[Rfam]
RNA sequence: GGUUUAUAAAGAAGUGGCGAGAGACUGGCUCAGUGACCCACUGGCAACCAUUCGCAAACGGUGGAAAAGGUGCCAAUUCCUGUCCCAAACGAUAUCGAUUGGGAGCAUAUAAAUA
Numbered sequence: 001g002g003u004u005u006a007u008a009a010a011g012a013a014g015u016g017g018c019g020a021g022a023g024a025c026u027g028g029c030u031c032a033g034u035g036a037c038c039c040a041c042u043g044g045c046a047a048c049c050a051u052u053c054g055c056a057a058a059c060g061g062u063g064g065a066a067a068a069g070g071u072g073c074c075a076a077u078u079c080c081u082g083u084c085c086c087a088a089a090c091g092a093u094a095u096c097g098a099u100u101g102g103g104a105g106c107a108u109a110u111a112a113a114u115a
Stems, first nucleotide, its partner, number of pairs: 002114007013042005021031003025082001027080002043074004048070002051065003078107001083104006